Small nucleolar RNA R11/Z151: a 79-nucleotide RNA sequence from Spinacia oleracea. Rfam links the family to the GO terms RNA processing and nucleolus. The family has 5 seed sequences and 802 matches in Rfam 15.1. It is annotated as a C/D-box small nucleolar RNA. It scores 59 bits against the family's covariance model. The source organism's lineage runs through Eukaryota, Euphyllophyta, Spermatophyta, Caryophyllales and Spinacia. The base pairs follow the family's consensus structure, which was predicted with PFOLD.

RNA sequence: GAGUUGAUGAUGAUAAUUUACUUUAUCUUAGCGGAUUUCACUGAGAUCAAUUAUCUGAUUGUUACACACACUAAAGCUC
Numbered sequence: 001g002a003g004u005u006g007a008u009g010a011u012g013a014u015a016a017u018u019u020a021c022u023u024u025a026u027c028u029u030a031g032c033g034g035a036u037u038u039c040a041c042u043g044a045g046a047u048c049a050a051u052u053a054u055c056u057g058a059u060u061g062u063u064a065c066a067c068a069c070a071c072u073a074a075a076g077c078u079c
Base pairs, nucleotide, nucleotide: 001079002078003077004076005075